The record is an 88-nucleotide sequence from Paenibacillus lutimineralis, which matches "c-di-GMP-I riboswitch aptamer" in Rfam. The family's consensus secondary structure is taken from published work.
[Rfam]
RNA sequence: UAUUGCUCAGGGCAAACCCUUCGAAAGACGGGGGCGCAAAGCUAUAGGGGCUACAGCGGAUCUACCGCCAGGCCAGCCAGCUGCCGAU
Numbered sequence: 001u002a003u004u005g006c007u008c009a010g011g012g013c014a015a016a017c018c019c020u021u022c023g024a025a026a027g028a029c030g031g032g033g034g035c036g037c038a039a040a041g042c043u044a045u046a047g048g049g050g051c052u053a054c055a056g057c058g059g060a061u062c063u064a065c066c067g068c069c070a071g072g073c074c075a076g077c078c079a080g081c082u083g084c085c086g087a088u
Base pairs, nucleotide, nucleotide: 012037013036017032018031019030021028022027040082041081042080043079047078048077049074050073051072056068057067058066059065